[Rfam]
RNA sequence: GCCCCCCUGUAACCCGGGGUUGUAUCGUAACCAAGCUGUGUGUCUUAGGCGCAUGGGUAUGAUACGACCUGGGUUAGAUGAGGGU
Numbered sequence: 001g002c003c004c005c006c007c008u009g010u011a012a013c014c015c016g017g018g019g020u021u022g023u024a025u026c027g028u029a030a031c032c033a034a035g036c037u038g039u040g041u042g043u044c045u046u047a048g049g050c051g052c053a054u055g056g057g058u059a060u061g062a063u064a065c066g067a068c069c070u071g072g073g074u075u076a077g078a079u080g081a082g083g084g085u
Stems, first nucleotide, its partner, number of pairs: 001085004006080001012075001014073002017070013031056003035052002037049001039047001
mir-729 microRNA precursor family: an 85-nucleotide RNA from Chanos chanos. Rfam 15.1 lists 43 matches to the family in 36 species. The source organism's lineage runs through Eukaryota, Deuterostomia, Gnathostomata, Chanidae and Chanos. Its family is annotated with RISC complex and miRNA-mediated post-transcriptional gene silencing in the Gene Ontology. The match comes from Rfam's covariance-model search (64 bits).